[Rfam]
RNA sequence: UAAAAGGGUGCCUGCCGUACUGAGUGGCACUGGGGGCUUUGCCUCCUGGGGUAUGGCCAUCAAGACAUACCCGGCACAUAAUUUUUAAACACAGAAGGAAGUUCGUAUGCCUUGCGCCCGGACUCCUUC
Numbered sequence: 001u002a003a004a005a006g007g008g009u010g011c012c013u014g015c016c017g018u019a020c021u022g023a024g025u026g027g028c029a030c031u032g033g034g035g036g037c038u039u040u041g042c043c044u045c046c047u048g049g050g051g052u053a054u055g056g057c058c059a060u061c062a063a064g065a066c067a068u069a070c071c072c073g074g075c076a077c078a079u080a081a082u083u084u085u086u087a088a089a090c091a092c093a094g095a096a097g098g099a100a101g102u103u104c105g106u107a108u109g110c111c112u113u114g115c116g117c118c119c120g121g122a123c124u125c126c127u128u129c
Stems, first nucleotide, its partner, number of pairs: 008077005013029005030048001032046005049072007096127004101123005108116003
Record summary:
Rfam assigns this 129-nucleotide RNA sequence from Homarus americanus to the family "U11 spliceosomal RNA". Pairs were carried over by alignment from the consensus structure, which is taken from published work. Its family is annotated with pre-mRNA 5'-splice site binding, mRNA 5'-splice site recognition and U11 snRNP in the Gene Ontology. The family has 72 seed sequences and 2,595 matches in Rfam 15.1. The organism belongs to Homarus, within Eukaryota.